[Rfam]
This 281-nucleotide sequence from Trichoderma citrinoviride belongs to the Rfam family "A. fumigatus sRNA Afu_309".
The literature on the family includes a 2008 paper in Nucleic Acids Res by Jochl et al., "Small ncRNA transcriptome analysis from Aspergillus fumigatus suggests a novel mechanism for regulation of protein synthesis".
NCBI's taxonomy places the organism under Eukaryota, Opisthokonta, Fungi, sordariomyceta, Trichoderma.
Rfam 15.1 lists 663 matches to the family in 646 species.
By type it is a small RNA.
RNA sequence: CCUUCUCAACAAACAACGGAUCUGUGCUUUGCGGUCCUCUGCGUUCACGCGUCAGGGUCGACUGCUCUGCAGCUCGAUAACUCCAUGGAGCCAUCAACUUGCUAUGGUGUCAAUCAUCCUAUCGACAGGUCCAAGAACAAUUCGGCCUCCGGCUGCCUCAUUCGCUGUCGCAAGACGGCUUGAGUGUUGUGGCUGGAGGAUUCGGGGGCCCCAUAUUCCAACCCUUUUUUCCAAGGCCGUCGGCCGGUGAGGUUGAGGAAAACCAUGGGUUGCCUACAUAU
Number, nucleotide and partner (000 for none) at each position: 001c000002c000003u000004u000005c000006u000007c000008a000009a000010c000011a000012a000013a000014c000015a000016a000017c000018g132019g131020a130021u129022c128023u127024g126025u125026g070027c069028u000029u000030u000031g065032c000033g063034g062035u061036c060037c057038u056039c055040u054041g053042c051043g050044u000045u000046c000047a000048c000049g000050c043051g042052u000053c041054a040055g039056g038057g037058u000059c000060g036061a035062c034063u033064g000065c031066u000067c000068u000069g027070c026071a000072g000073c000074u000075c000076g000077a000078u124079a000080a122081c000082u121083c000084c000085a000086u112087g111088g110089a000090g108091c107092c106093a000094u000095c000096a000097a000098c000099u000100u000101g000102c000103u000104a000105u000106g092107g091108u090109g000110u088111c087112a086113a000114u000115c000116a000117u000118c000119c000120u000121a082122u080123c000124g078125a025126c024127a023128g022129g021130u020131c019132c018133a000134a000135g000136a000137a000138c000139a000140a000141u000142u000143c000144g000145g000146c000147c198148u197149c196150c195151g194152g193153c000154u000155g000156c000157c000158u000159c000160a185161u184162u183163c182164g179165c178166u177167g176168u175169c174170g000171c000172a000173a000174g169175a168176c167177g166178g165179c164180u000181u000182g163183a162184g161185u160186g000187u000188u000189g000190u000191g000192g000193c152194u151195g150196g149197a148198g147199g000200a000201u000202u000203c000204g000205g000206g000207g274208g273209c272210c269211c268212c267213a266214u265215a000216u000217u000218c000219c000220a000221a000222c000223c000224c258225u257226u256227u255228u000229u000230u000231c252232c251233a000234a000235g245236g244237c243238c242239g000240u000241c000242g238243g237244c236245c235246g000247g000248u000249g000250a000251g232252g231253u000254u000255g227256a226257g225258g224259a000260a000261a000262a000263c000264c000265a214266u213267g212268g211269g210270u000271u000272g209273c208274c207275u000276a000277c000278a000279u000280a000281u000